[Rfam]
RNA sequence: UGCCCUGCUCCGUCACUCGGAUCGUCCGGCACGUACCUGCCGGUGAAGGAGAAACAACA
Numbered sequence: 001u002g003c004c005c006u007g008c009u010c011c012g013u014c015a016c017u018c019g020g021a022u023c024g025u026c027c028g029g030c031a032c033g034u035a036c037c038u039g040c041c042g043g044u045g046a047a048g049g050a051g052a053a054a055c056a057a058c059a
Stems, first nucleotide, its partner, number of pairs: 009050003013046003026043006
RNA: msiK RNA
Organism: Paramicrobacterium agarici